This 320-nucleotide RNA sequence from Zygosaccharomyces rouxii belongs to the Rfam family "Nuclear RNase P". Lineage of the source: Eukaryota > Ascomycota > Saccharomycotina > Saccharomycetes > Zygosaccharomyces. The family's RNA type in Rfam is ribozyme.

RNA sequence: UCCAAAUCCUACGCAAUUUUACCUGCCUUCAUAAGGAACUCAAAGGGUUCAGUUAGUACUUAACUUACUAUAUAAGCAGGUGGGAAAUUCGGUGGAACUCUAAGAGACAAUCAGCCGGAUCUUUAGCUUAAUUGUUAAAGAACUGUUUCCGUGAGGAAAGUCUGGGGAACUGGACUUGCAGCUGCUGUCACAAGAAAUCAACGCCCUUUGUUGGUGGAUGGGAAGGCAGUAGAGGUCUCUUUUGGCUUGGAUGCAAAUUUGGACGUCCAAGGCUUGCUGAGUGCAAUCGUGGGACAAAGAACUCGAUACCGAUUACUGGA
Dot-bracket structure: .(((..(((((((.......(((((..........((((((...))))))..........................)))))........[[[[[...................................................(((((....)))))((((((....)))))).......(((((((............((...........))........)))))))........................................................)))))))............]]]]].....))).
Numbered sequence: 001u002c003c004a005a006a007u008c009c010u011a012c013g014c015a016a017u018u019u020u021a022c023c024u025g026c027c028u029u030c031a032u033a034a035g036g037a038a039c040u041c042a043a044a045g046g047g048u049u050c051a052g053u054u055a056g057u058a059c060u061u062a063a064c065u066u067a068c069u070a071u072a073u074a075a076g077c078a079g080g081u082g083g084g085a086a087a088u089u090c091g092g093u094g095g096a097a098c099u100c101u102a103a104g105a106g107a108c109a110a111u112c113a114g115c116c117g118g119a120u121c122u123u124u125a126g127c128u129u130a131a132u133u134g135u136u137a138a139a140g141a142a143c144u145g146u147u148u149c150c151g152u153g154a155g156g157a158a159a160g161u162c163u164g165g166g167g168a169a170c171u172g173g174a175c176u177u178g179c180a181g182c183u184g185c186u187g188u189c190a191c192a193a194g195a196a197a198u199c200a201a202c203g204c205c206c207u208u209u210g211u212u213g214g215u216g217g218a219u220g221g222g223a224a225g226g227c228a229g230u231a232g233a234g235g236u237c238u239c240u241u242u243u244g245g246c247u248u249g250g251a252u253g254c255a256a257a258u259u260u261g262g263a264c265g266u267c268c269a270a271g272g273c274u275u276g277c278u279g280a281g282u283g284c285a286a287u288c289g290u291g292g293g294a295c296a297a298a299g300a301a302c303u304c305g306a307u308a309c310c311g312a313u314u315a316c317u318g319g320a
Stems, first nucleotide, its partner, number of pairs: 002319003007294007021081005036050006090311005146159005160175006183231007202216002
The family's consensus secondary structure is taken from published work. The match comes from Rfam's covariance-model search (57 bits).